Background:
A member of the RNA family "Betaproteobacteria toxic small RNA" from Noviherbaspirillum pedocola, 59 nucleotides long. A reference for the family is Kimelman et al. (2012), "A vast collection of microbial genes that are toxic to bacteria", Genome Res. About the family: Overexpression in amino aid rich medium attenuates growth, suggesting role in repressing amino acid intake and metabolism. It scores 53 bits against the family's covariance model.
[Rfam]
RNA sequence: UGUCUCCUCCACCCUCCAAAGGAUGGAUUAACCCGCUCCCAGUGAGCGGGUUUUUUUUC
Numbered sequence: 001u002g003u004c005u006c007c008u009c010c011a012c013c014c015u016c017c018a019a020a021g022g023a024u025g026g027a028u029u030a031a032c033c034c035g036c037u038c039c040c041a042g043u044g045a046g047c048g049g050g051u052u053u054u055u056u057u058u059c
Stems, first nucleotide, its partner, number of pairs: 008027004013022002030052008
Dot-bracket structure: .......((((.((......)).))))..((((((((.......)))))))).......